[Rfam]
RNA sequence: AAGCGUUCUCAGGGCGGGGCGAAAUUCCCCACCGGCGGUGAUGGCGGCUUGUAACCACAAGACCGCACGAGUGCCGCGAGCGCCCGCAUGGUGCAAAGCCGAGCGGGGUCAGCAGACCCGGUGAGAUCCCGGGACCGACGGUCAGAGUCCGGAUGAUAGAGAGCGCGA
Numbered sequence: 001a002a003g004c005g006u007u008c009u010c011a012g013g014g015c016g017g018g019g020c021g022a023a024a025u026u027c028c029c030c031a032c033c034g035g036c037g038g039u040g041a042u043g044g045c046g047g048c049u050u051g052u053a054a055c056c057a058c059a060a061g062a063c064c065g066c067a068c069g070a071g072u073g074c075c076g077c078g079a080g081c082g083c084c085c086g087c088a089u090g091g092u093g094c095a096a097a098g099c100c101g102a103g104c105g106g107g108g109u110c111a112g113c114a115g116a117c118c119c120g121g122u123g124a125g126a127u128c129c130c131g132g133g134a135c136c137g138a139c140g141g142u143c144a145g146a147g148u149c150c151g152g153a154u155g156a157u158a159g160a161g162a163g164c165g166c167g168a
Stems, first nucleotide, its partner, number of pairs: 003166008017029003031148002033137002035077006080113002117133005139151003
Dot-bracket structure: ..((((((((......(((.......))).[[((((((((...............................))))))..((..............................))...(((((.......)))))..)).(((.....]]))).......))))))))..
RNA: FMN riboswitch aptamer (RFN element)
Organism: Hydrogenophaga crassostreae